The record is a 59-nucleotide sequence from Blomia tropicalis, which matches "Plastid-psbA-4 3UTR RNA" in Rfam. The organism belongs to Blomia, within Eukaryota. Plastid psbA-4 is a non-coding RNA (ncRNA) present in plastids. It was identified in inverted repeat sequences in the 3 prime untranslate region (3UTR) of photosystem II quinone-binding protein (psbA). It scores 64 bits against the family's covariance model. The literature on the family includes a 2023 paper in Plant Commun by Richter et al., "Retrograde signaling in plants: A critical review focusing on the GUN pathway and beyond". Clan: Plastid-psbA 3UTR RNA clan. It is annotated as a cis-regulatory element.
[Rfam]
RNA sequence: AAAAUUAAGGAGCAAUUAACUCUUUCUUGUUUUAUCAAGAGGGGUUAUUGCUCCUUAUA
Numbered sequence: 001a002a003a004a005u006u007a008a009g010g011a012g013c014a015a016u017u018a019a020c021u022c023u024u025u026c027u028u029g030u031u032u033u034a035u036c037a038a039g040a041g042g043g044g045u046u047a048u049u050g051c052u053c054c055u056u057a058u059a
Stems, first nucleotide, its partner, number of pairs: 006057011022043001024041006